[Rfam]
RNA sequence: AAUCAUGAGUUCCAGCCACGCGGCCCUGGCCGGCUGGACGGCAACCCUCGCCGCUGUCGUGGGGUGCCCCAGGUGACGAUUCGGCCCGCGUGCCAACGCCGUGGGCAAGGAUGGCGG
Numbered sequence: 001a002a003u004c005a006u007g008a009g010u011u012c013c014a015g016c017c018a019c020g021c022g023g024c025c026c027u028g029g030c031c032g033g034c035u036g037g038a039c040g041g042c043a044a045c046c047c048u049c050g051c052c053g054c055u056g057u058c059g060u061g062g063g064g065u066g067c068c069c070c071a072g073g074u075g076a077c078g079a080u081u082c083g084g085c086c087c088g089c090g091u092g093c094c095a096a097c098g099c100c101g102u103g104g105g106c107a108a109g110g111a112u113g114g115c116g117g
Stems, first nucleotide, its partner, number of pairs: 001081004009039001011038006022031002040068003045064003049059002084106007092099002